[Rfam]
RNA sequence: UUCCCCGUUUGAUGUUCUGAUGAAUAUUGUUGUAGUAAAACGGUUCGCCAAAACCGUCUGAUUGCUUAAUUCACAGUCAAUUUACCACACAUUCUCCAAUUGGAACUGACAACGGGUUUUUCG
Numbered sequence: 001u002u003c004c005c006c007g008u009u010u011g012a013u014g015u016u017c018u019g020a021u022g023a024a025u026a027u028u029g030u031u032g033u034a035g036u037a038a039a040a041c042g043g044u045u046c047g048c049c050a051a052a053a054c055c056g057u058c059u060g061a062u063u064g065c066u067u068a069a070u071u072c073a074c075a076g077u078c079a080a081u082u083u084a085c086c087a088c089a090c091a092u093u094c095u096c097c098a099a100u101u102g103g104a105a106c107u108g109a110c111a112a113c114g115g116g117u118u119u120u121u122c123g
Base pairs, nucleotide, nucleotide: 004116005115006114007113008112009111014106015105016104017103018102019101020100021099022096023095025091027089029088030087032085033084034083035082041056042055043054044053045052059079060078061077062076063075064074

The family of this 123-nucleotide RNA from Vibrio navarrensis is "MtlS RNA". The family's RNA type in Rfam is small RNA. NCBI's taxonomy places the organism under Bacteria, Pseudomonadota, Vibrionales, Vibrionaceae, Vibrio. The base pairs follow the family's consensus structure, which was predicted with WAR. Rfam links the family to the GO term mannitol transport.